[Rfam]
RNA: Nitrogen stress-induced RNA 1
RNA sequence: UGGUAGAUGCACCCUGAUUUAACCCUGGAAGCCAUUCAGCUUCUGGGGUUUUUCUUA
Dot-bracket structure: .(((......)))........(((((((((((......)))))))))))........